[Rfam]
Rfam assigns this 123-nucleotide RNA from Geobacter pickeringii to the family "Molybdenum/Tungsten riboswitch aptamer (Moco RNA motif)". Lineage of the source: Bacteria > Thermodesulfobacteriota > Geobacterales > Geobacteraceae > Geobacter.

RNA sequence: AAAUAAUGCCUUCUCCGAGCCUGCCUGCCUGCGGGGAUAACUGGUAUCCCAUGGCGUCAGGCCAAUGGGUUUUGCUGGAAACGGCAAGGCCUCCCUUUGGAAAGGAGAAUUAUCGUGGUUCGC
Dot-bracket structure: ..........((((((..(((((.(.(((...((((..........))))..)))).)))))....(((((((((((....)))))))))))((....))...))))))..............

Rfam links the family to the GO terms regulation of gene expression, molybdenum ion binding and tungstate binding.